[Rfam]
RNA sequence: AAGUUAGCAAAAUAGAUCUAUAACUUUAGGAUAAGGAUUAGCUCUAAGGGUUAGGUAUAUUAGGCUUUAAGCAGAUAGCUUAGGAGUAGGUUGCUAUUAGCUAGGUUUCUAGCUAGAGGCUUUUAGUAUUUAGGUUCUAACGCUCUUAGUAAGCUUUAGCUGUCUGGUAUAUAGUUAAUAACUAACUUAGAACUAGUAUAGAUAAG
Numbered sequence: 001a002a003g004u005u006a007g008c009a010a011a012a013u014a015g016a017u018c019u020a021u022a023a024c025u026u027u028a029g030g031a032u033a034a035g036g037a038u039u040a041g042c043u044c045u046a047a048g049g050g051u052u053a054g055g056u057a058u059a060u061u062a063g064g065c066u067u068u069a070a071g072c073a074g075a076u077a078g079c080u081u082a083g084g085a086g087u088a089g090g091u092u093g094c095u096a097u098u099a100g101c102u103a104g105g106u107u108u109c110u111a112g113c114u115a116g117a118g119g120c121u122u123u124u125a126g127u128a129u130u131u132a133g134g135u136u137c138u139a140a141c142g143c144u145c146u147u148a149g150u151a152a153g154c155u156u157u158a159g160c161u162g163u164c165u166g167g168u169a170u171a172u173a174g175u176u177a178a179u180a181a182c183u184a185a186c187u188u189a190g191a192a193c194u195a196g197u198a199u200a201g202a203u204a205a206g
Base pairs, nucleotide, nucleotide: 015039016038017037018036019035024029040194041193043191044190045189046188047187048186049183050182051181052180053179055172056171057170058169059168060167061166062165063164064150065149066148070144071143077136078135079134080133081132082131083130084129086127087126089124090123093120094119095118097116098115099114100113101112102111103110104109195199
Shown here is a 206-nucleotide part of an RNA from Colletotrichum gloeosporioides, a member of the family "Eukaryotic large subunit ribosomal RNA". A search with the family's covariance model found it, with a score of 2085 bits. The base pairs follow the family's consensus structure, which is taken from published work. NCBI's taxonomy places the organism under Eukaryota, Opisthokonta, sordariomyceta, Glomerellales, Colletotrichum gloeosporioides species complex.